[Rfam]
RNA: Tymovirus/Pomovirus/Furovirus tRNA-like 3' UTR element
RNA sequence: AAUGAAGGCAGUCCUUCUCCCUUUAGCACACAAAGGUCAAUGGGUGCGACUCCCCCCCUUUUCCGAGGGUCAUCGGAAACC
Number, nucleotide and partner (000 for none) at each position: 001a000002a000003u000004g017005a016006a015007g014008g013009c000010a000011g047012u000013c008014c007015u006016u005017c004018u000019c000020c036021c035022u034023u033024u032025a000026g000027c000028a000029c000030a000031c000032a024033a023034a022035g021036g020037u000038c000039a000040a000041u000042g054043g053044g052045u000046g000047c011048g000049a000050c000051u000052c044053c043054c042055c069056c068057c067058c000059u000060u000061u000062u077063c076064c075065g074066a073067g057068g056069g055070u000071c000072a000073u066074c065075g064076g063077a062078a000079a000080c000081c000